[Rfam]
Shown here is a 148-nucleotide sequence from Paraglaciecola psychrophila, a member of the family "Group II catalytic intron D1-D4-7".
Rfam links the family to the GO term Group II intron splicing.
Group II introns are found in rRNA, tRNA and mRNA of organelles in fungi, plants and protists, and also in mRNA in bacteria.
The literature on the family includes a 2001 paper in Trends Genet by Bonen and Vogel, "The ins and outs of group II introns".
The organism belongs to Paraglaciecola psychrophila, within Bacteria.
RNA sequence: CCUACUGUCUCACCAGUAGUUCCCUUCUUCGCUGUGCGUUAACGGUAACGUUUAGGUGCAAAGCGCUGAGGACAAUGUAACCGCGGGGAACCGUAAAUACUGCCUGUUAAGGCAGGCUUGAAUCUGCUAGUCGAAAGCGGUGAUGGUG
Numbered sequence: 001c002c003u004a005c006u007g008u009c010u011c012a013c014c015a016g017u018a019g020u021u022c023c024c025u026u027c028u029u030c031g032c033u034g035u036g037c038g039u040u041a042a043c044g045g046u047a048a049c050g051u052u053u054a055g056g057u058g059c060a061a062a063g064c065g066c067u068g069a070g071g072a073c074a075a076u077g078u079a080a081c082c083g084c085g086g087g088g089a090a091c092c093g094u095a096a097a098u099a100c101u102g103c104c105u106g107u108u109a110a111g112g113c114a115g116g117c118u119u120g121a122a123u124c125u126g127c128u129a130g131u132c133g134a135a136a137g138c139g140g141u142g143a144u145g146g147u148g
Stems, first nucleotide, its partner, number of pairs: 002019006028069002031066002033060005039054001041052004083094004095119002098116001104111002124140005
Dot-bracket structure: .((((((......))))))........((.(((((((.(.((((....)))).).)))))....)).)).............((((....))))((.(.....((....))....).))....(((((.......)))))........